This 151-nucleotide sequence from Carnegiea gigantea belongs to the Rfam family "Small nucleolar RNA snoR136". Its family is annotated with RNA processing and nucleolus in the Gene Ontology. The source organism's lineage runs through Eukaryota, Streptophyta, Mesangiospermae, Cactaceae and Carnegiea. The literature on the family includes a 2009 paper in Nucleic Acids Res by Chen and Wu, "Mining small RNA sequencing data: a new approach to identify small nucleolar RNAs in Arabidopsis".
[Rfam]
RNA sequence: UUGGGUUCACUUGAUUUGAUCAGGCCUAAAAUGGUGCCGUGAUUUGUUUAAUGGGCAUUGUUUUCAUUUGUGAAUCCUAUAUAAAAUUGGUUCCCCUCGCUAUCCAGUGUGGCUUUUCUGUGUUGCAUUCGGACGUUGGGGAACUAUAUUU
Numbered sequence: 001u002u003g004g005g006u007u008c009a010c011u012u013g014a015u016u017u018g019a020u021c022a023g024g025c026c027u028a029a030a031a032u033g034g035u036g037c038c039g040u041g042a043u044u045u046g047u048u049u050a051a052u053g054g055g056c057a058u059u060g061u062u063u064u065c066a067u068u069u070g071u072g073a074a075u076c077c078u079a080u081a082u083a084a085a086a087u088u089g090g091u092u093c094c095c096c097u098c099g100c101u102a103u104c105c106a107g108u109g110u111g112g113c114u115u116u117u118c119u120g121u122g123u124u125g126c127a128u129u130c131g132g133a134c135g136u137u138g139g140g141g142a143a144c145u146a147u148a149u150u151u
Base pairs, nucleotide, nucleotide: 002079003077004076005075008072009071010070013069014068018065019064022061030059031058032057033056035054038053039052040051090144091143092142093141094140095139096138098135099134103133104132105131107129112123113122
Dot-bracket structure: .((((..(((..((...((..(.......((((.(..(((..........)))).)))).)..))..)))))..))).)..........(((((((.((...(((.(....((........)).....).)))))..))))))).......